Rfam assigns this 397-nucleotide RNA from Pantoea sp. Nvir to the family "Bacterial RNase P class A".
A search with the family's covariance model found it, with a score of 331 bits.
By type it is a ribozyme.

[Rfam]
RNA sequence: GAAGCUGACCAGACAGUCGCCGCUUUGUCUUUUUCUCUAAGAUUUCUCUAAGAAGACAGACAGGGGGGAGGAAAGUCCGGGCUCCAUAGGGCAAGGUGCCAGGUAACACCUGGGGGGCGUGAGCCUACGACUAGUGCAACAGAAAGUAAACCGCCAGUUGAUCCAUUGAUAUUGUGUAUGGAAUUAUCAGGCAAGGGUGAAAGGGUGCGGUAAGAGCGCACCGCGCGGCUGGUAACAGUUCGUGGCACGGUAAACUCCACCUGGAGCAAGGCCAAAUAGGGGUUCGCAUAGUACGGCCCGUACUGAACUCGGGUAGGUUGCUUGAGCCAGUGAGCGAUUGCUGGCCUAGAUGAAUGACUGUCCAAGACAGAACCCGGCUUAUAGGUCAGUUUCUUUU
Numbered sequence: 001g002a003a004g005c006u007g008a009c010c011a012g013a014c015a016g017u018c019g020c021c022g023c024u025u026u027g028u029c030u031u032u033u034u035c036u037c038u039a040a041g042a043u044u045u046c047u048c049u050a051a052g053a054a055g056a057c058a059g060a061c062a063g064g065g066g067g068g069a070g071g072a073a074a075g076u077c078c079g080g081g082c083u084c085c086a087u088a089g090g091g092c093a094a095g096g097u098g099c100c101a102g103g104u105a106a107c108a109c110c111u112g113g114g115g116g117g118c119g120u121g122a123g124c125c126u127a128c129g130a131c132u133a134g135u136g137c138a139a140c141a142g143a144a145a146g147u148a149a150a151c152c153g154c155c156a157g158u159u160g161a162u163c164c165a166u167u168g169a170u171a172u173u174g175u176g177u178a179u180g181g182a183a184u185u186a187u188c189a190g191g192c193a194a195g196g197g198u199g200a201a202a203g204g205g206u207g208c209g210g211u212a213a214g215a216g217c218g219c220a221c222c223g224c225g226c227g228g229c230u231g232g233u234a235a236c237a238g239u240u241c242g243u244g245g246c247a248c249g250g251u252a253a254a255c256u257c258c259a260c261c262u263g264g265a266g267c268a269a270g271g272c273c274a275a276a277u278a279g280g281g282g283u284u285c286g287c288a289u290a291g292u293a294c295g296g297c298c299c300g301u302a303c304u305g306a307a308c309u310c311g312g313g314u315a316g317g318u319u320g321c322u323u324g325a326g327c328c329a330g331u332g333a334g335c336g337a338u339u340g341c342u343g344g345c346c347u348a349g350a351u352g353a354a355u356g357a358c359u360g361u362c363c364a365a366g367a368c369a370g371a372a373c374c375c376g377g378c379u380u381a382u383a384g385g386u387c388a389g390u391u392u393c394u395u396u397u
Stems, first nucleotide, its partner, number of pairs: 001393010011382001012362007020068002023065008073380003077377005082266004089299004094262005099113005114128001115126004129257002134255002136251002151196002153192003157188001159186003204222006223246001224244005229238003270319004280310006290304005326345008

NCBI's taxonomy places the organism under Bacteria, Pseudomonadati, Gammaproteobacteria, Erwiniaceae, Pantoea.